[Rfam]
RNA sequence: GGCUUUUUUUUCGAUAUAGAACACUCAUGUCGAUAAAAUGAUUUGAACCCCCC
Numbered sequence: 001g002g003c004u005u006u007u008u009u010u011u012c013g014a015u016a017u018a019g020a021a022c023a024c025u026c027a028u029g030u031c032g033a034u035a036a037a038a039u040g041a042u043u044u045g046a047a048c049c050c051c052c053c
Stems, first nucleotide, its partner, number of pairs: 011033007

Rfam assigns this 53-nucleotide RNA from Cucumis melo to the family "Plastid-atpF group II-D1 intron". The family has 49 seed sequences and 1,372 matches in Rfam 15.1. It scores 72 bits against the family's covariance model. About the family: Plastid atpF is a non-coding RNA (ncRNA) recognised in plastids. It has been reported in the intron group II-D1 region of ATP synthase (atpF) genes. Rfam links the family to the GO term Group II intron splicing. The base pairs follow the family's consensus structure, which was predicted with LocARNA. The literature on the family includes a 2023 paper in Plant Commun by Richter et al., "Retrograde signaling in plants: A critical review focusing on the GUN pathway and beyond".